[Rfam]
RNA sequence: AUGCCUUAAACUUAUGAGUAAGGAAAAUAAUGACCUGGGGUGACACCCGGGUUCUCACUGCCAAUGUAAGAGGAAUUUUUGCGCGGGUACAGGUAGUCCUUAGGUACCCUGCCUGCUUCACGGGAUGCCCGGGUGCAGUGAUCUGCCCG
Numbered sequence: 001a002u003g004c005c006u007u008a009a010a011c012u013u014a015u016g017a018g019u020a021a022g023g024a025a026a027a028u029a030a031u032g033a034c035c036u037g038g039g040g041u042g043a044c045a046c047c048c049g050g051g052u053u054c055u056c057a058c059u060g061c062c063a064a065u066g067u068a069a070g071a072g073g074a075a076u077u078u079u080u081g082c083g084c085g086g087g088u089a090c091a092g093g094u095a096g097u098c099c100u101u102a103g104g105u106a107c108c109c110u111g112c113c114u115g116c117u118u119c120a121c122g123g124g125a126u127g128c129c130c131g132g133g134u135g136c137a138g139u140g141a142u143c144u145g146c147c148c149g
Stems, first nucleotide, its partner, number of pairs: 004023005032053008054070002057067002084149005091144004096139002099133002103129004108124004
RNA: U12 minor spliceosomal RNA